This 83-nucleotide RNA from Mytilus galloprovincialis belongs to the Rfam family "tRNA". The family's RNA type in Rfam is transfer RNA. The organism belongs to Mytilus, within Eukaryota. The family's consensus secondary structure is taken from published work. It scores 63 bits against the family's covariance model.
RNA sequence: AGUGCGAUGGCCGAGUGGUUAAGGCGUUGGACUUAAGUUCCAAUGGAAGUAUUUCCGCGUGGGUUCGAACCCCACUCGCACUA
Numbered sequence: 001a002g003u004g005c006g007a008u009g010g011c012c013g014a015g016u017g018g019u020u021a022a023g024g025c026g027u028u029g030g031a032c033u034u035a036a037g038u039u040c041c042a043a044u045g046g047a048a049g050u051a052u053u054u055c056c057g058c059g060u061g062g063g064u065u066c067g068a069a070c071c072c073c074a075c076u077c078g079c080a081c082u083a
Stems, first nucleotide, its partner, number of pairs: 001082007010025003027043005059075005